[Rfam]
RNA sequence: CGAUCUCAAUUCAAAUAAGACUACCCGCUGAACUUAAGCAUAUCAGUAAGCGGAGGAAAAGAAACUAACAAGGAUUCCCCCAGUAACGGCGAGUGAAGAGGGAUCAGCUCAAUUUUAAAAUCUGGCGUCUCACCACGGACGCCCGAAUUGUAAUUGAUAGGCAGUGACAUGGGCAAAUGAUGGUGUGGACCAAGUCCUUUGGAACAUGGCGCCACAGAGGGUGAUAGCCCCGUGAGUCCACACCAAUGCUUGCCAACACAUGGUGCUGCCAAAGAGUCGGAUUGCUUGGGAAUGCAGUCCUAAAUGGGUGGUACAUUCCAUCUAAAGCUAAAUAUAGGCAAGAGACCGAUAGCAUACAAGUACCGUGAGGGAAAGAUGAAAAGAACUUUGAAAAGAGAGUUAAACAGUACGUGAAAUUGUUAAAAGGGAAA
Numbered sequence: 001c002g003a004u005c006u007c008a009a010u011u012c013a014a015a016u017a018a019g020a021c022u023a024c025c026c027g028c029u030g031a032a033c034u035u036a037a038g039c040a041u042a043u044c045a046g047u048a049a050g051c052g053g054a055g056g057a058a059a060a061g062a063a064a065c066u067a068a069c070a071a072g073g074a075u076u077c078c079c080c081c082a083g084u085a086a087c088g089g090c091g092a093g094u095g096a097a098g099a100g101g102g103a104u105c106a107g108c109u110c111a112a113u114u115u116u117a118a119a120a121u122c123u124g125g126c127g128u129c130u131c132a133c134c135a136c137g138g139a140c141g142c143c144c145g146a147a148u149u150g151u152a153a154u155u156g157a158u159a160g161g162c163a164g165u166g167a168c169a170u171g172g173g174c175a176a177a178u179g180a181u182g183g184u185g186u187g188g189a190c191c192a193a194g195u196c197c198u199u200u201g202g203a204a205c206a207u208g209g210c211g212c213c214a215c216a217g218a219g220g221g222u223g224a225u226a227g228c229c230c231c232g233u234g235a236g237u238c239c240a241c242a243c244c245a246a247u248g249c250u251u252g253c254c255a256a257c258a259c260a261u262g263g264u265g266c267u268g269c270c271a272a273a274g275a276g277u278c279g280g281a282u283u284g285c286u287u288g289g290g291a292a293u294g295c296a297g298u299c300c301u302a303a304a305u306g307g308g309u310g311g312u313a314c315a316u317u318c319c320a321u322c323u324a325a326a327g328c329u330a331a332a333u334a335u336a337g338g339c340a341a342g343a344g345a346c347c348g349a350u351a352g353c354a355u356a357c358a359a360g361u362a363c364c365g366u367g368a369g370g371g372a373a374a375g376a377u378g379a380a381a382a383g384a385a386c387u388u389u390g391a392a393a394a395g396a397g398a399g400u401u402a403a404a405c406a407g408u409a410c411g412u413g414a415a416a417u418u419g420u421u422a423a424a425a426g427g428g429a430a431a
Stems, first nucleotide, its partner, number of pairs: 024055001025053005035042002065072002076103004086094002106329004112155001114153002118149002121146002124143006160270002163267004168262003172254005178248001184242007194210001196209002199206001213217001220230002279300007306323005363370002386397004